[Rfam]
RNA sequence: UUUUCCCUGCCUGGUUCGCGAAGGCCUUAAAUUCCUUGAACCAAUGAACUCUGCAGGUUGCGGAAGUUUGUAGUGCUGGUGUGAGCGUCGCUUAGCCCGAUGAACCCGAAGCGUUACUAACCGCGACCACCUUGAACCUCCCGGUUCAGGAUGCCGGCUCAGCGGCUGUGGCGGGGACCCC
Numbered sequence: 001u002u003u004u005c006c007c008u009g010c011c012u013g014g015u016u017c018g019c020g021a022a023g024g025c026c027u028u029a030a031a032u033u034c035c036u037u038g039a040a041c042c043a044a045u046g047a048a049c050u051c052u053g054c055a056g057g058u059u060g061c062g063g064a065a066g067u068u069u070g071u072a073g074u075g076c077u078g079g080u081g082u083g084a085g086c087g088u089c090g091c092u093u094a095g096c097c098c099g100a101u102g103a104a105c106c107c108g109a110a111g112c113g114u115u116a117c118u119a120a121c122c123g124c125g126a127c128c129a130c131c132u133u134g135a136a137c138c139u140c141c142c143g144g145u146u147c148a149g150g151a152u153g154c155c156g157g158c159u160c161a162g163c164g165g166c167u168g169u170g171g172c173g174g175g176g177a178c179c180c181c
Stems, first nucleotide, its partner, number of pairs: 004177008012168004017164003033151003037148006056128003060124004070117007081106001086102005
Description: This 181-nucleotide sequence from Pandoraea terrae belongs to the Rfam family "6S / SsrS RNA". Rfam 15.1 lists 5,006 matches to the family in 4,638 species.